A member of the RNA family "Histone 3' UTR stem-loop" from Acanthaster planci, 46 nucleotides long.
The family's consensus secondary structure is taken from published work.
Rfam links the family to the GO term mRNA 3'-end processing by stem-loop binding and cleavage.

[Rfam]
RNA sequence: ACCGCGGUUCUUUUCAGAACCACACACACUCAAAGAGAGAAUUUGU
Numbered sequence: 001a002c003c004g005c006g007g008u009u010c011u012u013u014u015c016a017g018a019a020c021c022a023c024a025c026a027c028a029c030u031c032a033a034a035g036a037g038a039g040a041a042u043u044u045g046u
Base pairs, nucleotide, nucleotide: 006021007020008019009018010017011016
By type it is a cis-regulatory element. About the family: The mRNAs of metazoan histone genes lack a poly-A tail. 3' end processing occurs at a site between a highly conserved stem-loop (modelled by this family) and a purine rich region around 20 nts downstream (the histone downstream element, or HDE). The stem-loop is bound by a 31 kDa stem-loop binding protein (SLBP - also termed the histone hairpin binding protein, or HBP). Together with U7 snRNA binding of the HDE, SLBP binding nucleate s the formation of the processing complex. The histone 3' UTR stem-loop is also involved in nucleocytoplasmic transport of the mRNA, and in stability regulation and translation efficiency in the cytoplasm.